[Rfam]
RNA sequence: UCCUCGCUCAAAGAAUCGCAUUCGAAGCACACAAACAGAAAUAUCUUGAUUGAUGUUUCAAUUCUAUCUAUGCUUUGGGAGAAAGUCCCCGGACACCCUUCUUUCUAAAAGUUAGGAUUGCGGAAACGCGCCGCCAUAGAAGCACUUGCGGCUUCUCUUCUACCAAUUCUUUACCUUCAAUUUCAUACAUACUCCUGUCGUUUGUACUAUUACUUUGACGCUUCUUGACUAUCGAAUUCAAAACCUGGGGGACCACAUGGAUGAAGAUAUGAGUCCGAGCUUCCUUGCGAUGUUUCCAACAGACUUGAAGAAGAUGAGUAGUGGGAGGCAUAAAGUAUGUUCUUGAUUGAGGUGGGAGUGCUAAUGGUAGACGAGGCUUUUUCGUCGAGAUCGAUAGUUAUGCGAUUGCCUUCCUUUACUUUUCAAGCUGGGGAGGUAACUCGAUGGGGCUUAUUCUUGAUGCGAGG
Numbered sequence: 001u002c003c004u005c006g007c008u009c010a011a012a013g014a015a016u017c018g019c020a021u022u023c024g025a026a027g028c029a030c031a032c033a034a035a036c037a038g039a040a041a042u043a044u045c046u047u048g049a050u051u052g053a054u055g056u057u058u059c060a061a062u063u064c065u066a067u068c069u070a071u072g073c074u075u076u077g078g079g080a081g082a083a084a085g086u087c088c089c090c091g092g093a094c095a096c097c098c099u100u101c102u103u104u105c106u107a108a109a110a111g112u113u114a115g116g117a118u119u120g121c122g123g124a125a126a127c128g129c130g131c132c133g134c135c136a137u138a139g140a141a142g143c144a145c146u147u148g149c150g151g152c153u154u155c156u157c158u159u160c161u162a163c164c165a166a167u168u169c170u171u172u173a174c175c176u177u178c179a180a181u182u183u184c185a186u187a188c189a190u191a192c193u194c195c196u197g198u199c200g201u202u203u204g205u206a207c208u209a210u211u212a213c214u215u216u217g218a219c220g221c222u223u224c225u226u227g228a229c230u231a232u233c234g235a236a237u238u239c240a241a242a243a244c245c246u247g248g249g250g251g252a253c254c255a256c257a258u259g260g261a262u263g264a265a266g267a268u269a270u271g272a273g274u275c276c277g278a279g280c281u282u283c284c285u286u287g288c289g290a291u292g293u294u295u296c297c298a299a300c301a302g303a304c305u306u307g308a309a310g311a312a313g314a315u316g317a318g319u320a321g322u323g324g325g326a327g328g329c330a331u332a333a334a335g336u337a338u339g340u341u342c343u344u345g346a347u348u349g350a351g352g353u354g355g356g357a358g359u360g361c362u363a364a365u366g367g368u369a370g371a372c373g374a375g376g377c378u379u380u381u382u383c384g385u386c387g388a389g390a391u392c393g394a395u396a397g398u399u400a401u402g403c404g405a406u407u408g409c410c411u412u413c414c415u416u417u418a419c420u421u422u423u424c425a426a427g428c429u430g431g432g433g434a435g436g437u438a439a440c441u442c443g444a445u446g447g448g449g450c451u452u453a454u455u456c457u458u459g460a461u462g463c464g465a466g467g
Stems, first nucleotide, its partner, number of pairs: 002467006008460004014407006022079001023077006038059007083452003087449004119130004279368003285364003290359001294357004306350001308348002335341001409436006
Rfam assigns this 467-nucleotide RNA from Monilinia fructigena to the family "RNase MRP".
Rfam's curators write: RNase MRP is an enzymatically active ribonucleoprotein with two distinct roles in eukaryotes. In mitochondria it plays a direct role in the initiation of mitochondrial DNA replication.
Lineage of the source: Eukaryota > Fungi > Pezizomycotina > Leotiomycetes > Monilinia.
Pairs were carried over by alignment from the consensus structure, which is taken from published work.